[Rfam]
A member of the RNA family "23S methyl RNA motif" from Lacticaseibacillus paracasei, 113 nucleotides long. Rfam's curators put it in the seed alignment. The family's consensus secondary structure is taken from published work. Lineage of the source: Bacteria > Bacillota > Lactobacillales > Lactobacillaceae > Lacticaseibacillus paracasei.
RNA sequence: UUAUUUUUAACUUUUAUCAGGGCUAGCUUUUGGGUAAUUGAUAAAAGUUUGCGAUAAAUUACUUCACUAACGUAUCGCUUCGCUGAGUGCGCUCCGAAGCAAUGCGUUUUUUU
Dot-bracket structure: .((((.(.(((((((((((...................))))))))))).).))))............(((((((.((((((..(((....))))))))).))))))).....